Description
Shown here is a 139-nucleotide sequence from Drosophila albomicans, a member of the family "Small nucleolar RNA psi18S-1377". By type it is an H/ACA-box small nucleolar RNA. Rfam links the family to the GO terms nucleolus and RNA processing. NCBI's taxonomy places the organism under Eukaryota, Bilateria, Altocrustacea, Eremoneura, Drosophila. psi18S-1377 is a member of the H/ACA class of snoRNA. This family is responsible for guiding the modification of uridines 1377 and 1279 to pseudouridine in Drosophila 18S rRNA. Pairs were carried over by alignment from the consensus structure, which was predicted with RNAalifold.
[Rfam]
RNA sequence: UCGUCUCCGUGUUAUUUGCGGCGCGUUCUUUAAGCGCCGUGAUUGUCAAAGGAGACGCAUAUUAAUUGCCAAUAACUCGUUAUUGUGCGCCAUCAAACGCAUUUUUGCGGGCGUCCAUCUCCAUAUAUUGGCUACAUUU
Numbered sequence: 001u002c003g004u005c006u007c008c009g010u011g012u013u014a015u016u017u018g019c020g021g022c023g024c025g026u027u028c029u030u031u032a033a034g035c036g037c038c039g040u041g042a043u044u045g046u047c048a049a050a051g052g053a054g055a056c057g058c059a060u061a062u063u064a065a066u067u068g069c070c071a072a073u074a075a076c077u078c079g080u081u082a083u084u085g086u087g088c089g090c091c092a093u094c095a096a097a098c099g100c101a102u103u104u105u106u107g108c109g110g111g112c113g114u115c116c117a118u119c120u121c122c123a124u125a126u127a128u129u130g131g132c133u134a135c136a137u138u139u
Stems, first nucleotide, its partner, number of pairs: 002057006010048002016042007082118002088113004